[Rfam]
RNA sequence: CUCCCUCAGCUUGACUCUGGGGCCUUUUGCUGUAAAGCGCCCUGGCAUUGGGUACAGGAAAAGUGCUCAUCCCUCGUCAGGGAGGCUGUCUUCCUUUGGGGCCUACAAAUGGGGCUGACAGC
Dot-bracket structure: ..(((...........((((((.((((......))))..))))))....))).........(((.((.......(.((((.((........))..)))).).........)).)))......
RNA: Small nucleolar RNA SNORA49
Organism: Galemys pyrenaicus